[Rfam]
RNA sequence: UCGGGUCGGCAUGGGAUCUCCACCUCCUCGCGGUCCGACCUGGGCAUCCGUAAGGAGAGCGUAGCUCCCUCGGAUGGCAAAGGGAGAUCCACC
Numbered sequence: 001u002c003g004g005g006u007c008g009g010c011a012u013g014g015g016a017u018c019u020c021c022a023c024c025u026c027c028u029c030g031c032g033g034u035c036c037g038a039c040c041u042g043g044g045c046a047u048c049c050g051u052a053a054g055g056a057g058a059g060c061g062u063a064g065c066u067c068c069c070u071c072g073g074a075u076g077g078c079a080a081a082g083g084g085a086g087a088u089c090c091a092c093c
Base pairs, nucleotide, nucleotide: 003041004040005039006038007037008036009035012091013090014089015088017087018086019085022034023033024032026043027042045076046075047074048073049072050071054068055067056066058062
Rfam assigns this 93-nucleotide sequence from Deltavirus italiense to the family "Hepatitis delta virus ribozyme". The hepatitis delta virus (HDV) ribozyme is necessary for viral replication and is thought to be the only catalytic RNA known to be required for viability of a human pathogen. The ribozyme acts to process the RNA transcripts to unit lengths in a self cleavage reaction. It is one of the family's seed sequences. The base pairs follow the family's consensus structure, which is taken from published work. The organism belongs to Deltavirus italiense, within Viruses. The literature on the family includes a 1988 paper in J Virol by Kuo et al., "Characterization of self-cleaving RNA sequences on the genome and antigenome of human hepatitis delta virus". Rfam links the family to the GO term RNA nuclease activity.